[Rfam]
RNA sequence: UAGUGGUGUGACAUGCCGUUUGGUGUCGAACUCUGAUUUUUAUAAUUAUAAUUAAAUUGAUUUUGGGAAACGGGGUGUUACAUUUUG
Numbered sequence: 001u002a003g004u005g006g007u008g009u010g011a012c013a014u015g016c017c018g019u020u021u022g023g024u025g026u027c028g029a030a031c032u033c034u035g036a037u038u039u040u041u042a043u044a045a046u047u048a049u050a051a052u053u054a055a056a057u058u059g060a061u062u063u064u065g066g067g068a069a070a071c072g073g074g075g076u077g078u079u080a081c082a083u084u085u086u087g
Stems, first nucleotide, its partner, number of pairs: 003086001005084010016073005
Background
Rfam assigns this 87-nucleotide RNA sequence from Medicago truncatula to the family "MIR2617 microRNA precursor family". The base pairs follow the family's consensus structure, which was predicted with RNAalifold. Lineage of the source: Eukaryota > Embryophyta > Euphyllophyta > Hologalegina > Medicago. It scores 47 bits against the family's covariance model.